[Rfam]
RNA: L17 ribosomal protein downstream element
Organism: Pseudolactococcus insecticola
RNA sequence: GGAGUGUUAUGAUGGUGGUGCUUGCACUUAGUCUAGCUCUUACUGUCUAGUAUUACUAGGCCG
Numbered sequence: 001g002g003a004g005u006g007u008u009a010u011g012a013u014g015g016u017g018g019u020g021c022u023u024g025c026a027c028u029u030a031g032u033c034u035a036g037c038u039c040u041u042a043c044u045g046u047c048u049a050g051u052a053u054u055a056c057u058a059g060g061c062c063g
Base pairs, nucleotide, nucleotide: 002039003038004037005036011033012032013031017028018027019026020025043063045061046060047059048058049057050056